[Rfam]
RNA sequence: GUCUGGCUUGGACGUGCGACGGAGUCCUUGCAGGCUGGACAUCACAAAAGACCUCCAUCGCACCGCCUGAAUACUUAUUCUCGCGGCCCAAUCACGGGAGAGAACGCUGAGCGUAACAAC
Numbered sequence: 001g002u003c004u005g006g007c008u009u010g011g012a013c014g015u016g017c018g019a020c021g022g023a024g025u026c027c028u029u030g031c032a033g034g035c036u037g038g039a040c041a042u043c044a045c046a047a048a049a050g051a052c053c054u055c056c057a058u059c060g061c062a063c064c065g066c067c068u069g070a071a072u073a074c075u076u077a078u079u080c081u082c083g084c085g086g087c088c089c090a091a092u093c094a095c096g097g098g099a100g101a102g103a104a105c106g107c108u109g110a111g112c113g114u115a116a117c118a119a120c
Stems, first nucleotide, its partner, number of pairs: 001040010063086004069080004
The record is a 120-nucleotide RNA sequence from Corynebacterium sp. 366, which matches "atpB RNA" in Rfam. The base pairs follow the family's consensus structure, which is taken from published work. A search with the family's covariance model found it, with a score of 97 bits. By type it is a cis-regulatory element.